[Rfam]
RNA: Small nucleolar RNA SNORA71
RNA sequence: CCCUGUAUCGAAAGUGAUUGUGGCAUGAUUGUUGCCUGGUCAUUGAUACGCAGGAAGAGUGAGUUGAAAGUCCCGUGUUUGCUGGAGUAUCAGUUCCUGCCAAACCCUGUAUCUUUCAGACA
Dot-bracket structure: .(((((.(....((((((((.((((.......))))))))))))...).)))))..........((((((......((((((.(((........))).).))))).......))))))....